This 104-nucleotide RNA sequence from Virgibacillus salexigens belongs to the Rfam family "SAM riboswitch aptamer (S box leader)". The source organism's lineage runs through Bacteria, Bacillati, Bacillota, Caryophanales and Virgibacillus. The match comes from Rfam's covariance-model search (89 bits).

RNA sequence: AUCUUAUCAAGAGAAGCUGAGGGAACUGGCCCGAAGAAGCUUCAGCAACCUCUGUUUACUCAGAAAGGUGCUAAAUCCAGCGAGUGUAUCUUGGUAGAUAAGAG
Numbered sequence: 001a002u003c004u005u006a007u008c009a010a011g012a013g014a015a016g017c018u019g020a021g022g023g024a025a026c027u028g029g030c031c032c033g034a035a036g037a038a039g040c041u042u043c044a045g046c047a048a049c050c051u052c053u054g055u056u057u058a059c060u061c062a063g064a065a066a067g068g069u070g071c072u073a074a075a076u077c078c079a080g081c082g083a084g085u086g087u088a089u090c091u092u093g094g095u096a097g098a099u100a101a102g103a104g
Base pairs, nucleotide, nucleotide: 002103003102004101005100006099007098008097013043014042015041016040017039021032022031023030026080027079028078029077044072045071046070047069049068050067051064052063053062054061076096081093082092083091084090